[Rfam]
RNA sequence: GAAAAUAAAGGAGCAAUAACCUCUCUUGGUUUAUUAAGAGAGGUUGUUGCUCCUUUAU
Numbered sequence: 001g002a003a004a005a006u007a008a009a010g011g012a013g014c015a016a017u018a019a020c021c022u023c024u025c026u027u028g029g030u031u032u033a034u035u036a037a038g039a040g041a042g043g044u045u046g047u048u049g050c051u052c053c054u055u056u057a058u
Base pairs, nucleotide, nucleotide: 007056008055009054010053011052012051013050014049015048016047017046018045023040024039025038026037027036028035